Record summary
This 126-nucleotide RNA sequence from Paenibacillus radicis belongs to the Rfam family "Guanidine-I riboswitch aptamer". NCBI's taxonomy places the organism under Bacteria, Bacillati, Bacillota, Paenibacillaceae, Paenibacillus. Rfam links the family to the GO term regulation of gene expression.
RNA sequence: GGCAAAGUUGUCUAGGGUUCCGUUGGGCUGAGCUGCUCAAGUCUGGUCCGAGAGACGGCGUAUAGCAGGCGAUCACCCGCAACGGCGGCCCUUCUAUAUACACGGAAGGAUAAAAGCCUGGGAGAU
Numbered sequence: 001g002g003c004a005a006a007g008u009u010g011u012c013u014a015g016g017g018u019u020c021c022g023u024u025g026g027g028c029u030g031a032g033c034u035g036c037u038c039a040a041g042u043c044u045g046g047u048c049c050g051a052g053a054g055a056c057g058g059c060g061u062a063u064a065g066c067a068g069g070c071g072a073u074c075a076c077c078c079g080c081a082a083c084g085g086c087g088g089c090c091c092u093u094c095u096a097u098a099u100a101c102a103c104g105g106a107a108g109g110a111u112a113a114a115a116g117c118c119u120g121g122g123a124g125a126u
Stems, first nucleotide, its partner, number of pairs: 007059006015049002020046002022043001023040006060099006067092003101121001103124001107119003